This 47-nucleotide sequence from Propithecus coquereli belongs to the Rfam family "KRAS 3' UTR cis-regulatory element". The literature on the family includes a 2016 paper in Oncotarget by Kim et al., "Cis-acting elements in its 3' UTR mediate post-transcriptional regulation of KRAS". Taxonomically the source falls in Propithecus (Eukaryota, Theria, Eutheria, Euarchontoglires). It scores 49 bits against the family's covariance model.
RNA sequence: CCAAAAAUAUAUUUUUUCUACAAAAAGAAAAAAAUGGAAAAAAAAUA
Numbered sequence: 001c002c003a004a005a006a007a008u009a010u011a012u013u014u015u016u017u018c019u020a021c022a023a024a025a026a027g028a029a030a031a032a033a034a035u036g037g038a039a040a041a042a043a044a045a046u047a
Stems, first nucleotide, its partner, number of pairs: 012043009